Shown here is a 268-nucleotide RNA sequence from Psychrobacillus soli, a member of the family "Bacterial large signal recognition particle RNA".

RNA sequence: CCGUGCUAGGUGGGAAGGUAGCGGUGUCUUGUAACUCGCAAUCCGCUCUAGCGAGACUGAACUCCUUCUCUGAGGUUGAAUACAUGUAGGGUCUGGUCCUUGCACGUGAUGUUGACGUUUGGGUCCUGCGCAAUGAGUGCCCAUGAACCAUGUCAGGUCCGGAAGGAAGCAGCAUUAAGUGGUGCUUUCUCAUGUGCCGCGGGGUAGCCUAAGCCGAGUUAACGACAAGGGUGCCGCUUAUGUGUUUCAAGCGAAGGAAGGUGCACGG
Numbered sequence: 001c002c003g004u005g006c007u008a009g010g011u012g013g014g015a016a017g018g019u020a021g022c023g024g025u026g027u028c029u030u031g032u033a034a035c036u037c038g039c040a041a042u043c044c045g046c047u048c049u050a051g052c053g054a055g056a057c058u059g060a061a062c063u064c065c066u067u068c069u070c071u072g073a074g075g076u077u078g079a080a081u082a083c084a085u086g087u088a089g090g091g092u093c094u095g096g097u098c099c100u101u102g103c104a105c106g107u108g109a110u111g112u113u114g115a116c117g118u119u120u121g122g123g124u125c126c127u128g129c130g131c132a133a134u135g136a137g138u139g140c141c142c143a144u145g146a147a148c149c150a151u152g153u154c155a156g157g158u159c160c161g162g163a164a165g166g167a168a169g170c171a172g173c174a175u176u177a178a179g180u181g182g183u184g185c186u187u188u189c190u191c192a193u194g195u196g197c198c199g200c201g202g203g204g205u206a207g208c209c210u211a212a213g214c215c216g217a218g219u220u221a222a223c224g225a226c227a228a229g230g231g232u233g234c235c236g237c238u239u240a241u242g243u244g245u246u247u248c249a250a251g252c253g254a255a256g257g258a259a260g261g262u263g264c265a266c267g268g
Stems, first nucleotide, its partner, number of pairs: 001268006009058003012030004017025001019023001035055005064261005070256002074252001076250003082245009094233002098230005106223002108220003117214008125203006131194002134192004139185002141182004150175004158167003
Dot-bracket structure: ((((((..(((((((.(.(...).).))))....(((((...........)))))))).....(((((.((..(.(((...(((((((((...((..(((((...(((((......((((((((((((((((.((((.((((((.....((((....(((....)))....))))...)))).))...))))))...))))))...))))))))...))).))..))))).))...)))))))))..))).)..))))))).))))))
Description: The family is grouped with related families in Rfam's "SRP clan". A search with the family's covariance model found it, with a score of 208 bits. The organism belongs to Psychrobacillus, within Bacteria. Its family is annotated with signal recognition particle, plasma membrane targeting and SRP-dependent cotranslational protein targeting to membrane, signal sequence recognition in the Gene Ontology.